[Rfam]
Nucleotides: 353
Base pairs, nucleotide, nucleotide: 001349002348003347004346005345006344007343020322021321022320023319024318025317026316027315029313033309034308035307036306038304039303040302043296044295045294046293047292049058050074051073052072053071054070055069056068111135115131116130117129118128138173140171141170142169147163148162149161150160154185155184156183157182158181192214193213194212195211196210197209198208201230202229203228204227205226233271234270235269236268237267238266239265240264241263242262253288257282258281326342327341328340329339330338
Number, partner (000 for none) and nucleotide at each position: 001349g002348g003347g004346g005345u006344c007343g008000u009000u010000c011000u012000g013000g014000a015000u016000u017000c018000g019000a020322c021321a022320g023319g024318u025317g026316u027315u028000g029313u030000c031000g032000c033309g034308u035307a036306u037000g038304a039303g040302c041000u042000g043296c044295g045294a046293u047292u048000g049058g050074u051073g052072c053071g054070g055069c056068g057000c058049c059000a060000c061000c062000a063000u064000a065000a066000a067000c068056c069055g070054c071053c072052g073051c074050a075000g076000a077000u078000a079000a080000a081000u082000a083000u084000a085000a086000c087000u088000g089000c090000u091000a092000a093000a094000a095000a096000u097000a098000c099000a100000c101000a102000a103000a104000c105000u106000u107000a108000c109000g110000c111135a112000g113000u114000a115131g116130c117129u118128g119000c120000c121000u122000a123000a124000a125000c126000c127000c128118c129117a130116g131115c132000c133000u134000g135111u136000g137000u138173g139000c140171c141170u142169g143000a144000u145000c146000u147163u148162c149161g150160c151000u152000c153000g154185c155184c156183u157182a158181c159000g160150g161149u162148g163147a164000c165000u166000u167000g168000a169142u170141g171140g172000c173138c174000u175000a176000a177000u178000c179000u180000a181158g182157u183156a184155g185154g186000a187000u188000a189000c190000g191000c192214u193213c194212a195211a196210g197209c198208g199000u200000u201230g202229u203228u204227u205226c206000g207000c208198c209197g210196c211195u212194u213193g214192a215000u216000a217000a218000g219000a220000g221000a222000u223000u224000u225000a226205g227204a228203g229202a230201c231000u232000c233271g234270c235269a236268a237267g238266c239265g240264g241263g242262c243000u244000u245000u246000g247000u248000u249000c250000g251000a252000g253288g254000a255000u256000u257282g258281u259000c260000u261000c262242g263241c264240c265239c266238g267237u268236u269235u270234g271233u272000u273000a274000a275000a276000u277000u278000u279000a280000g281258a282257c283000a284000g285000u286000u287000c288253c289000u290000a291000u292047g293046a294045u295044u296043g297000u298000a299000g300000a301000c302040g303039c304038u305000g306036a307035u308034a309033u310000a311000g312000c313029a314000a315027g316026g317025c318024a319023u320022u321021u322020g323000g324000a325000c326342g327341u328340g329339g330338g331000u332000u333000c334000g335000a336000c337000u338330c339329c340328c341327a342326c343007c344006g345005g346004c347003u348002c349001c350000a351000u352000u353000a